[Rfam]
RNA: MIR8565 microRNA precursor family
RNA sequence: CCCACACCCAUGUGUAUAGGACCCCAAAGGAUCACCAUUAAAUUUGGCACAGAUCUCUAGAAAAGUCAAAUCUUACACCCAUGUGAUAAUUUUUCUAGAGAUCUGUGCCAAAUUUAAUAGUGAUCCUUUGGGAUCCUACACACAUGGGUGUGGA
Numbered sequence: 001c002c003c004a005c006a007c008c009c010a011u012g013u014g015u016a017u018a019g020g021a022c023c024c025c026a027a028a029g030g031a032u033c034a035c036c037a038u039u040a041a042a043u044u045u046g047g048c049a050c051a052g053a054u055c056u057c058u059a060g061a062a063a064a065g066u067c068a069a070a071u072c073u074u075a076c077a078c079c080c081a082u083g084u085g086a087u088a089a090u091u092u093u094u095c096u097a098g099a100g101a102u103c104u105g106u107g108c109c110a111a112a113u114u115u116a117a118u119a120g121u122g123a124u125c126c127u128u129u130g131g132g133a134u135c136c137u138a139c140a141c142a143c144a145u146g147g148g149u150g151u152g153g154a
Base pairs, nucleotide, nucleotide: 002153003152004151005150006149007148008147009146010145011144012143013142015140017138018137019136020135021134023132024131025130026129027128028127030125031124032123034121035120037118038117039116040115041114042113043112044111045110046109047108048107049106050105051104052103053102054101055100056099057098058097059096060095061094062093063092064091065090066089068087069082